The record is a 153-nucleotide sequence from Beta vulgaris, which matches "Small nucleolar RNA snoR2/U65" in Rfam. Taxonomically the source falls in Beta vulgaris (Eukaryota, Embryophyta, Caryophyllales, Beta). Rfam links the family to the GO terms RNA processing and nucleolus. The family is grouped with related families in Rfam's "SNORA65 clan". The literature on the family includes a 1998 paper in J Cell Sci by Shaw et al., "Localization and processing from a polycistronic precursor of novel snoRNAs in maize". Rfam classes the family as an H/ACA-box small nucleolar RNA. The base pairs follow the family's consensus structure, which was predicted with WAR.
RNA sequence: GGUCCGAUGCCACGUCGUUCAUAGCGUAAAGCAAUGAUUUACGAUGCUACAUUGGUACCAAGAUUAAAUUUUGAUUAUGUUUCGCAUUUUGAUAGGAACCCGUUAAUCUUGUUUUUCAAUGAUUAAACGGAGCCGUUUUUUGCGAUUACAUUU
Numbered sequence: 001g002g003u004c005c006g007a008u009g010c011c012a013c014g015u016c017g018u019u020c021a022u023a024g025c026g027u028a029a030a031g032c033a034a035u036g037a038u039u040u041a042c043g044a045u046g047c048u049a050c051a052u053u054g055g056u057a058c059c060a061a062g063a064u065u066a067a068a069u070u071u072u073g074a075u076u077a078u079g080u081u082u083c084g085c086a087u088u089u090u091g092a093u094a095g096g097a098a099c100c101c102g103u104u105a106a107u108c109u110u111g112u113u114u115u116u117c118a119a120u121g122a123u124u125a126a127a128c129g130g131a132g133c134c135g136u137u138u139u140u141u142g143c144g145a146u147u148a149c150a151u152u153u
Base pairs, nucleotide, nucleotide: 002058003057004055005054006053007052008051009050013046014045015044016043017042018041021038022037024032025031082145083144084143085142086141095134096133100130101129102128104125105124106123107122108121